[Rfam]
RNA sequence: CCUGCUGUUCUGCCAGCAGUAGCCUACUCGAUCGUGCGUCGCUGGUAACGGCGGGGUGCGGAGCAUCGAGGACAACAUCCGGGGCUGCAAAGCCUAGCCGAAGCCGCGAGGCAACGGUGACACCUGCAAGCAUCGAUGCGGGAGCCGCG
Numbered sequence: 001c002c003u004g005c006u007g008u009u010c011u012g013c014c015a016g017c018a019g020u021a022g023c024c025u026a027c028u029c030g031a032u033c034g035u036g037c038g039u040c041g042c043u044g045g046u047a048a049c050g051g052c053g054g055g056g057u058g059c060g061g062a063g064c065a066u067c068g069a070g071g072a073c074a075a076c077a078u079c080c081g082g083g084g085c086u087g088c089a090a091a092g093c094c095u096a097g098c099c100g101a102a103g104c105c106g107c108g109a110g111g112c113a114a115c116g117g118u119g120a121c122a123c124c125u126g127c128a129a130g131c132a133u134c135g136a137u138g139c140g141g142g143a144g145c146c147g148c149g
Stems, first nucleotide, its partner, number of pairs: 002019006028069005033060005039054006082095005097118004104111002123142006

The family of this 149-nucleotide RNA sequence from Paraburkholderia humisilvae is "Group II catalytic intron D1-D4-7". It scores 112 bits against the family's covariance model. About the family: Group II introns are found in rRNA, tRNA and mRNA of organelles in fungi, plants and protists, and also in mRNA in bacteria.